[Rfam]
RNA sequence: GGGUGUUAGCUGCACGUUGCAGCGGGACAGGUCAUCUGCGCUGGUCGGGCCGCCACG
Numbered sequence: 001g002g003g004u005g006u007u008a009g010c011u012g013c014a015c016g017u018u019g020c021a022g023c024g025g026g027a028c029a030g031g032u033c034a035u036c037u038g039c040g041c042u043g044g045u046c047g048g049g050c051c052g053c054c055a056c057g
Stems, first nucleotide, its partner, number of pairs: 005028003009023003039057002042055004
RNA: nhaA-I RNA
Organism: Paraburkholderia phymatum